Bacterial antisense RNA HPnc0260: a 139-nucleotide RNA from Rouxiella badensis. It scores 60 bits against the family's covariance model. The base pairs follow the family's consensus structure, which was predicted with CMfinder. Lineage of the source: Bacteria > Pseudomonadota > Gammaproteobacteria > Enterobacterales > Rouxiella.
[Rfam]
RNA sequence: GGUAAAGCAGAUUGGGUGAAAUGUCAGGAUUUAAUCAGGGAAAUAAGGGUAAGCGUUGGAUUUUAUUGAAAGAGGCAGGGAGGUGUUCAGGAAUUUGCAUUGGUGCGUCCGAGUGGACUCGAACCACCGACCCCCACCA
Numbered sequence: 001g002g003u004a005a006a007g008c009a010g011a012u013u014g015g016g017u018g019a020a021a022u023g024u025c026a027g028g029a030u031u032u033a034a035u036c037a038g039g040g041a042a043a044u045a046a047g048g049g050u051a052a053g054c055g056u057u058g059g060a061u062u063u064u065a066u067u068g069a070a071a072g073a074g075g076c077a078g079g080g081a082g083g084u085g086u087u088c089a090g091g092a093a094u095u096u097g098c099a100u101u102g103g104u105g106c107g108u109c110c111g112a113g114u115g116g117a118c119u120c121g122a123a124c125c126a127c128c129g130a131c132c133c134c135c136a137c138c139a
Base pairs, nucleotide, nucleotide: 024049025048030043031042032041066078067077068076101136102135103134105132110129111128113127114126115125116124